[Rfam]
RNA sequence: CCCGCGGUCAGACGGAAAGACCCUAUGAACCUUUACUAUAGCUUCGCCUUGGCGUUAGCGACCGUAUGUGUAGGAUAGGUGGGAGGCUAUGAAACCGGGGCGCCAGCUCUGGUGGAGCCAUCCUUGAAAUACCACCCUUACUGUCGUUGACGUCUAACCGAGGGCCGUUAUCCGGUCCCGGGACAUGGCGUGGUGGGUAGUUUGACUGGGGCGGUCGCCUCCCAAAGUGUAACGGAGGCGCGCGAUGGUGAGCUCAGAGCGGUCGGAAAUCGCUCGUCGAGUGCAAUGGCAUAAGCUCGCCUGACUGUGAGACUGACAAGUCGAGCAGAGACGAAAGUCGGCCAUAGUGAUCCGGUGGUCCCGCGUGGAAGGGCCAUCGCUCAACGGAUAAAAGGUACUCUAGGGAUAACAGGCUGAUUUUGCCCAAGAGUCCAUAUCGACGGCAAAGUUUGGCACCUCGAUGUCGGCUCAUCACAUCCUGGGGCUGGAGCAGGUCCCAAGGGUAUGGCUGUUCGCCAUUUAAAGUGGUACGUGAGCUGGGUUCAGAACGUCGUGAGACAGUUUGGUCCCUAUCUGCCGUGGGUGUU
Numbered sequence: 001c002c003c004g005c006g007g008u009c010a011g012a013c014g015g016a017a018a019g020a021c022c023c024u025a026u027g028a029a030c031c032u033u034u035a036c037u038a039u040a041g042c043u044u045c046g047c048c049u050u051g052g053c054g055u056u057a058g059c060g061a062c063c064g065u066a067u068g069u070g071u072a073g074g075a076u077a078g079g080u081g082g083g084a085g086g087c088u089a090u091g092a093a094a095c096c097g098g099g100g101c102g103c104c105a106g107c108u109c110u111g112g113u114g115g116a117g118c119c120a121u122c123c124u125u126g127a128a129a130u131a132c133c134a135c136c137c138u139u140a141c142u143g144u145c146g147u148u149g150a151c152g153u154c155u156a157a158c159c160g161a162g163g164g165c166c167g168u169u170a171u172c173c174g175g176u177c178c179c180g181g182g183a184c185a186u187g188g189c190g191u192g193g194u195g196g197g198u199a200g201u202u203u204g205a206c207u208g209g210g211g212c213g214g215u216c217g218c219c220u221c222c223c224a225a226a227g228u229g230u231a232a233c234g235g236a237g238g239c240g241c242g243c244g245a246u247g248g249u250g251a252g253c254u255c256a257g258a259g260c261g262g263u264c265g266g267a268a269a270u271c272g273c274u275c276g277u278c279g280a281g282u283g284c285a286a287u288g289g290c291a292u293a294a295g296c297u298c299g300c301c302u303g304a305c306u307g308u309g310a311g312a313c314u315g316a317c318a319a320g321u322c323g324a325g326c327a328g329a330g331a332c333g334a335a336a337g338u339c340g341g342c343c344a345u346a347g348u349g350a351u352c353c354g355g356u357g358g359u360c361c362c363g364c365g366u367g368g369a370a371g372g373g374c375c376a377u378c379g380c381u382c383a384a385c386g387g388a389u390a391a392a393a394g395g396u397a398c399u400c401u402a403g404g405g406a407u408a409a410c411a412g413g414c415u416g417a418u419u420u421u422g423c424c425c426a427a428g429a430g431u432c433c434a435u436a437u438c439g440a441c442g443g444c445a446a447a448g449u450u451u452g453g454c455a456c457c458u459c460g461a462u463g464u465c466g467g468c469u470c471a472u473c474a475c476a477u478c479c480u481g482g483g484g485c486u487g488g489a490g491c492a493g494g495u496c497c498c499a500a501g502g503g504u505a506u507g508g509c510u511g512u513u514c515g516c517c518a519u520u521u522a523a524a525g526u527g528g529u530a531c532g533u534g535a536g537c538u539g540g541g542u543u544c545a546g547a548a549c550g551u552c553g554u555g556a557g558a559c560a561g562u563u564u565g566g567u568c569c570c571u572a573u574c575u576g577c578c579g580u581g582g583g584u585g586u587u
Base pairs, nucleotide, nucleotide: 001583002582003581004580005579006578007577008576010575011574012573014570015569022404023403024402025401027400028399029396030395031394032393033392035201036200037199038198042193043192045190046189047188048187051154052153053152054151055150056149057148058147059146060145061144062143064141065140066139068137078136079135080134081133082132085119086118087117094113095112096111097110098109099108100107101106158181159180160179162178163177164176165175166174167173204216205215206214207213217239218238219237220236221235222234240385242342243341248300249299250298251297252296253295254280255279257275258274259273260272261271262270281290282289305328306327307326308325311322312321313320330339331338332337353379354378355377356376357375358374359373361372362371413454414453415452417451418448419447420446421445422444423443424442428438429437465540466538467537468536469535470532471529472528473527474526475525478503479502481498482497483496484495485494486493505519506518507517508516509515546564547563548562549561550559551558552557
This 587-nucleotide part of an RNA from Brevundimonas sp. Leaf363 belongs to the Rfam family "Bacterial large subunit ribosomal RNA". A search with the family's covariance model found it, with a score of 2746 bits. NCBI's taxonomy places the organism under Bacteria, Pseudomonadota, Alphaproteobacteria, Caulobacteraceae, Brevundimonas. The family's consensus secondary structure is taken from published work.